[Rfam]
Nucleotides: 099
Base pairs, nucleotide, nucleotide: 007086008085009084010083011048012047013046014045017023031040032039033038055080056079057078058077061074062073063072064071
Number, partner (000 for none) and nucleotide at each position: 001000u002000u003000u004000a005000a006000a007086c008085a009084c010083u011048a012047g013046g014045g015000g016000a017023g018000u019000u020000a021000c022000u023017c024000u025000g026000a027000g028000a029000u030000u031040g032039g033038a034000u035000u036000c037000g038033u039032c040031c041000u042000a043000a044000a045014c046013c047012c048011u049000u050000a051000u052000a053000u054000a055080c056079c057078u058077g059000a060000u061074c062073u063072g064071g065000g066000u067000u068000a069000u070000a071064c072063c073062a074061g075000c076000g077058u078057a079056g080055g081000g082000a083010a084009g085008u086007g087000c088000c089000a090000a091000u092000u093000g094000a095000c096000a097000c098000a099000a